[Rfam]
RNA sequence: UGGUCGAGUGGCGCGCGGUGGGACGCGUGCCGAGAAUGGACCUGUUUCAUGCCGUCACUGACGUGAACCGACGCUGUGCCCCCGGCAGCGUAUAGGU
Numbered sequence: 001u002g003g004u005c006g007a008g009u010g011g012c013g014c015g016c017g018g019u020g021g022g023a024c025g026c027g028u029g030c031c032g033a034g035a036a037u038g039g040a041c042c043u044g045u046u047u048c049a050u051g052c053c054g055u056c057a058c059u060g061a062c063g064u065g066a067a068c069c070g071a072c073g074c075u076g077u078g079c080c081c082c083c084g085g086c087a088g089c090g091u092a093u094a095g096g097u
Stems, first nucleotide, its partner, number of pairs: 002042004010031008067097003072090005